Record summary: FMN riboswitch aptamer (RFN element): a 148-nucleotide RNA from Pelagibacterium halotolerans. The family's consensus secondary structure is taken from published work.

RNA sequence: UUACGUUCUCAGGGCGGGGUGAAAGUCCCCACCGGCGGUGACAGUCUUUUGGCUGAAGCCCGCGAGCGCCUCGCCAGGCUGGCGAGGGUCAGCAGAUUCGGUGCAACUCCGAAGCCGACGGUCAUAGUCCGGAUGAGAGAGAACGGGA
Numbered sequence: 001u002u003a004c005g006u007u008c009u010c011a012g013g014g015c016g017g018g019g020u021g022a023a024a025g026u027c028c029c030c031a032c033c034g035g036c037g038g039u040g041a042c043a044g045u046c047u048u049u050u051g052g053c054u055g056a057a058g059c060c061c062g063c064g065a066g067c068g069c070c071u072c073g074c075c076a077g078g079c080u081g082g083c084g085a086g087g088g089u090c091a092g093c094a095g096a097u098u099c100g101g102u103g104c105a106a107c108u109c110c111g112a113a114g115c116c117g118a119c120g121g122u123c124a125u126a127g128u129c130c131g132g133a134u135g136a137g138a139g140a141g142a143a144c145g146g147g148a
Base pairs, nucleotide, nucleotide: 004145005144006143007142008141009140010139017029018028019027031128032127033117034116035063036062037061038060058115059114066093067092097113098112099111100110101109119131120130121129